[Rfam]
RNA sequence: AUAGACAAGUAGAAGCACCCGCUUCUCACCUGUUCGACGCUUUAUGCUGUUGACUGGUCCGAUAAUUUUCAAAUAGACUAUUGGGAACGUGUGGGUGCAUCUGUGUACCGACACAUUUUUUAUGUA
Numbered sequence: 001a002u003a004g005a006c007a008a009g010u011a012g013a014a015g016c017a018c019c020c021g022c023u024u025c026u027c028a029c030c031u032g033u034u035c036g037a038c039g040c041u042u043u044a045u046g047c048u049g050u051u052g053a054c055u056g057g058u059c060c061g062a063u064a065a066u067u068u069u070c071a072a073a074u075a076g077a078c079u080a081u082u083g084g085g086a087a088c089g090u091g092u093g094g095g096u097g098c099a100u101c102u103g104u105g106u107a108c109c110g111a112c113a114c115a116u117u118u119u120u121u122a123u124g125u126a
Base pairs, nucleotide, nucleotide: 011026012025013024014023015022016021028058029057030056036051037050038049039047040046090113091112092111094109095108096107097106098105099104
Ribosomal protein L20 leader: a 126-nucleotide RNA from Lentibacillus populi. Its family is annotated with regulation of gene expression in the Gene Ontology. Rfam's curators write: This family is a putative r-protein leader autoregulatory structure found in B. subtilis and other low-GC Gram-positive bacteria. It is located in the 5' untranslated regions of mRNAs encoding initiation factor 3 followed by ribosomal proteins L35 and L20 (infC-rpmI-rplT). The literature on the family includes a 1994 paper in Prog Nucleic Acid Res Mol Biol by Zengel and Lindahl, "Diverse mechanisms for regulating ribosomal protein synthesis in Escherichia coli". The family's consensus secondary structure was predicted with CMfinder. It scores 77 bits against the family's covariance model. NCBI's taxonomy places the organism under Bacteria, Bacilli, Caryophanales, Bacillaceae, Lentibacillus.